Bacterial large subunit ribosomal RNA: a 378-nucleotide part of an RNA from Oceanococcus atlanticus. The family's consensus secondary structure is taken from published work.

[Rfam]
Nucleotides: 378
Base pairs, nucleotide, nucleotide: 006024007023008022009021010020011019025376026375027374028373033356034355035354036353039336040335044068045067046066047065048064049063053061054060075332076331077330080111081110085106086105087104089102091100092099093098115132116131117130118129119128135328136327137326138325139324140323141322142321143320144319145318146313147312151308152307153306154305155304159295160294161293162292165288166287167286170282171281172280173279174278175196176195177194178193179192180191197255198254201250202249203248208243209242210241213236214235215234216233217232218231219230221229222228260273261272262271263270342351343350358370359369360368
Number, partner (000 for none) and nucleotide at each position: 001000g002000a003000u004000a005000a006024u007023g008022c009021g010020g011019g012000u013000g014000a015000a016000a017000a018000a019011c020010c021009c022008g023007c024006a025376c026375a027374c028373c029000g030000a031000a032000a033356a034355c035354c036353c037000a038000a039336g040335g041000u042000u043000u044068c045067c046066u047065g048064c049063g050000c051000a052000a053061c054060g055000c056000u057000u058000u059000u060054c061053g062000g063049c064048g065047c066046a067045g068044g069000g070000u071000a072000a073000g074000u075332c076331g077330g078000c079000c080111c081110c082000u083000a084000a085106g086105g087104c088000g089102a090000g091100g092099g093098c094000g095000a096000a097000a098093g099092c100091c101000g102089u103000a104087g105086u106085u107000g108000a109000u110081g111080g112000g113000a114000a115132a116131c117130a118129g119128g120000c121000u122000a123000a124000u125000a126000u127000u128119c129118c130117u131116g132115u133000a134000c135328u136327u137326g138325a139324u140323a141322u142321g143320a144319c145318u146313g147312c148000g149000a150000u151308g152307g153306g154305g155304g156000g157000a158000c159295g160294g161293a162292g163000a164000a165288g166287g167286u168000u169000a170282g171281g172280c173279a174278g175196g176195c177194c178193a179192g180191g181000c182000g183000u184000u185000g186000g187000u188000u189000g190000u191180c192179c193178u194177g195176g196175u197255u198254u199000a200000a201250g202249c203248g204000a205000g206000u207000a208243g209242g210241c211000u212000g213236a214235u215234u216233u217232c218231u219230u220000a221229g222228g223000c224000a225000a226000a227000u228222c229221c230219g231218g232217g233216a234215a235214a236213u237000c238000a239000a240000g241210g242209c243208c244000g245000a246000g247000a248203c249202g250201u251000u252000a253000u254198g255197a256000c257000g258000a259000a260273g261272u262271c263270c264000u265000c266000u267000u268000u269000u270263g271262g272261a273260c274000g275000a276000a277000g278174c279173u280172g281171u282170u283000g284000a285000u286167a287166c288165c289000a290000u291000g292162c293161u294160u295159c296000c297000a298000g299000g300000a301000a302000a303000a304155u305154c306153c307152u308151c309000u310000a311000a312147g313146c314000u315000u316000c317000a318145g319144g320143u321142c322141a323140u324139a325138u326137c327136a328135a329000a330077c331076c332075g333000u334000a335040c336039c337000c338000c339000a340000a341000a342351c343350c344000g345000a346000c347000a348000c349000a350343g351342g352000u353036g354035g355034g356033u357000u358370g359369g360368a361000u362000g363000a364000g365000a366000a367000u368360u369359c370358c371000a372000a373028g374027g375026u376025g377000u378000a